[Rfam]
c-di-GMP-II-GAG riboswitch aptamer: a 120-nucleotide RNA. A reference for the family is Weinberg et al. (2017), "Bioinformatic analysis of riboswitch structures uncovers variant classes with altered ligand specificity", Proc Natl Acad Sci U S A. Pairs were carried over by alignment from the consensus structure, which is taken from published work.
RNA sequence: UCACCAUCGGGAUGCGACGAUCCCCGCGGCGACUUCUAUCGGUUGCCAUGGUGUCAGCGGUGCCGCAACGGCACGCGCACCAGGCCGCGGGGCUAGCGAGUGGCGAGACCGGCCCGGACA
Numbered sequence: 001u002c003a004c005c006a007u008c009g010g011g012a013u014g015c016g017a018c019g020a021u022c023c024c025c026g027c028g029g030c031g032a033c034u035u036c037u038a039u040c041g042g043u044u045g046c047c048a049u050g051g052u053g054u055c056a057g058c059g060g061u062g063c064c065g066c067a068a069c070g071g072c073a074c075g076c077g078c079a080c081c082a083g084g085c086c087g088c089g090g091g092g093c094u095a096g097c098g099a100g101u102g103g104c105g106a107g108a109c110c111g112g113c114c115c116g117g118a119c120a
Base pairs, nucleotide, nucleotide: 007117008116009115010114011113013098014097015096022092023091024090025089026088027087028086029085041110042109043106044105045104046103047102